[Rfam]
A member of the RNA family "Ribosomal protein L20 leader" from Paenibacillus roseus, 142 nucleotides long.
Its family is annotated with regulation of gene expression in the Gene Ontology.
For this family Rfam cites "Diverse mechanisms for regulating ribosomal protein synthesis in Escherichia coli" (Zengel and Lindahl, Prog Nucleic Acid Res Mol Biol, 1994).
Lineage of the source: Bacteria > Bacillati > Bacilli > Paenibacillaceae > Paenibacillus.
It is annotated as a cis-regulatory leader.
Rfam's curators write: This family is a putative r-protein leader autoregulatory structure found in B. subtilis and other low-GC Gram-positive bacteria. It is located in the 5' untranslated regions of mRNAs encoding initiation factor 3 followed by ribosomal proteins L35 and L20 (infC-rpmI-rplT). A Rho-independent transcription terminator structure that is probably involved in regulation is included at the 3' end.
RNA sequence: CGUCACAAGCAGAAGCACCCGCUUCUCACCUGCCCGGUCUUUGCCGGCUGGUACGCAAUGAAUCGAUAACAAGGCAUACAUAGCCUUGCCAACGAGUAGUUAUGGAUGCGGGUCCGAGUGCGGUCCGCAUUUUUUUGUUGCA
Numbered sequence: 001c002g003u004c005a006c007a008a009g010c011a012g013a014a015g016c017a018c019c020c021g022c023u024u025c026u027c028a029c030c031u032g033c034c035c036g037g038u039c040u041u042u043g044c045c046g047g048c049u050g051g052u053a054c055g056c057a058a059u060g061a062a063u064c065g066a067u068a069a070c071a072a073g074g075c076a077u078a079c080a081u082a083g084c085c086u087u088g089c090c091a092a093c094g095a096g097u098a099g100u101u102a103u104g105g106a107u108g109c110g111g112g113u114c115c116g117a118g119u120g121c122g123g124u125c126c127g128c129a130u131u132u133u134u135u136u137g138u139u140g141c142a
Base pairs, nucleotide, nucleotide: 011026012025013024014023015022016021028052029051030050034047035046036045037044038043107129108128109127110126111125112124114123115122116121